[Rfam]
Bacterial RNase P class A: a 407-nucleotide RNA from Chlamydia trachomatis. NCBI's taxonomy places the organism under Bacteria, Pseudomonadati, Chlamydiia, Chlamydiaceae, Chlamydia. It is one of the family's seed sequences. By type it is a ribozyme. Ribonuclease P (RNase P) is a ubiquitous endoribonuclease, found in archaea, bacteria and eukarya as well as chloroplasts and mitochondria. Its best characterised activity is the generation of mature 5'-ends of tRNAs by cleaving the 5'-leader elements of precursor-tRNAs. Cellular RNase Ps are ribonucleoproteins. RNA from bacterial RNase Ps retains its catalytic activity in the absence of the protein subunit, i.e. it is a ribozyme.
RNA sequence: UCGGAGAGUAAGGCAACCGCUGAAACCAGCUUUUUAAAAAAGAUGAGUACCAGAGGAAAGUCCGGACUUUAUAAGAAAAGAUGCUGGAGAAAUUCCAGGGGCCGUAAGGCUACGGAAAGUGCAACAGAAAACACUCCGCUAUAAAUUGUAUAAUUUAUAGACAGGCUGAAAAAUCUUACUUUAGGAGUAAGAGCUGCUAGGGAAACCUAGCAGACUUGUAAACCCCAUCUGAAGCAAGAGAAAAAGUUAUUUGUUUCUGCAAACAACCUUUCUAACGAAAGGCACAGGCUUUUUCAUAAUCGCUUGAGGAGUACAGUAAUGUGCUCCCUAGAUGAAUGGUUGCCCGCAAGCAAGAACUUCCGUUCGUGCUUGUCGACAGAAUCCGGCUUACUCGCUCUUCCGAGCUU
Number, nucleotide and partner (000 for none) at each position: 001u403002c402003g401004g400005a398006g397007a396008g395009u394010a000011a000012g344013g343014c342015a341016a340017c339018c338019g000020c053021u052022g051023a000024a000025a048026c047027c045028a044029g000030c000031u000032u000033u000034u000035u000036a000037a000038a000039a000040a000041a000042g000043a000044u028045g027046a000047g026048u025049a000050c000051c022052a021053g020054a000055g000056g000057a000058a389059a388060g387061u000062c386063c385064g384065g383066a382067c234068u233069u232070u231071a000072u000073a000074a000075g000076a000077a273078a000079a230080g229081a228082u227083g226084c098085u097086g096087g095088a094089g000090a000091a000092a000093u000094u088095c087096c086097a085098g084099g113100g111101g110102c109103c108104g000105u000106a000107a000108g103109g102110c101111u100112a000113c099114g225115g224116a000117a000118a000119g223120u222121g219122c218123a217124a000125c000126a000127g000128a000129a000130a000131a000132c000133a000134c000135u000136c165137c164138g000139c160140u159141a158142u157143a156144a155145a154146u153147u000148g000149u000150a000151u000152a000153a146154u145155u144156u143157a142158u141159a140160g139161a000162c000163a000164g137165g136166c000167u000168g000169a000170a000171a000172a000173a000174u192175c191176u190177u189178a188179c187180u000181u000182u000183a000184g000185g000186a000187g179188u178189a177190a176191g175192a174193g215194c213195u212196g211197c210198u209199a208200g207201g206202g000203a000204a000205a000206c201207c200208u199209a198210g197211c196212a195213g194214a000215c193216u000217u123218g122219u121220a000221a000222a120223c119224c115225c114226c083227a082228u081229c080230u079231g070232a069233a068234g067235c000236a000237a000238g301239a300240g000241a294242a293243a292244a291245a290246g289247u000248u000249a000250u000251u000252u000253g000254u000255u000256u000257c000258u000259g000260c000261a000262a000263a000264c000265a000266a000267c282268c281269u280270u279271u278272c000273u077274a000275a000276c000277g000278a271279a270280a269281g268282g267283c000284a000285c000286a000287g000288g000289c246290u245291u244292u243293u242294u241295c000296a000297u000298a000299a000300u239301c238302g000303c000304u000305u000306g000307a000308g327309g326310a325311g324312u323313a322314c321315a320316g000317u000318a000319a000320u315321g314322u313323g312324c311325u310326c309327c308328c000329u000330a000331g000332a000333u000334g000335a000336a000337u000338g018339g017340u016341u015342g014343c013344c012345c000346g000347c000348a000349a000350g000351c000352a000353a000354g000355a000356a000357c000358u000359u000360c000361c000362g000363u000364u000365c000366g000367u000368g000369c000370u000371u000372g000373u000374c000375g000376a000377c000378a000379g000380a000381a000382u066383c065384c064385g063386g062387c060388u059389u058390a000391c000392u000393c000394g009395c008396u007397c006398u005399u000400c004401c003402g002403a001404g000405c000406u000407u000